[Rfam]
Description
RT-9 RNA: an 89-nucleotide sequence. It is one of the family's seed sequences. The family's consensus secondary structure is taken from published work. By type it is a small RNA.
RNA sequence: GAUUAUUGCGAUUACGGUUUCAAUAACAUGACUUAAUAAAACAAGAGAAUUCUAUUCUUUCACUUAAUUGUGUAAACACAUAAAUAUUG
Numbered sequence: 001g002a003u004u005a006u007u008g009c010g011a012u013u014a015c016g017g018u019u020u021c022a023a024u025a026a027c028a029u030g031a032c033u034u035a036a037u038a039a040a041a042c043a044a045g046a047g048a049a050u051u052c053u054a055u056u057c058u059u060u061c062a063c064u065u066a067a068u069u070g071u072g073u074a075a076a077c078a079c080a081u082a083a084a085u086a087u088u089g
Base pairs, nucleotide, nucleotide: 003026004025005024006023007022008021010019011018012017061072062071063070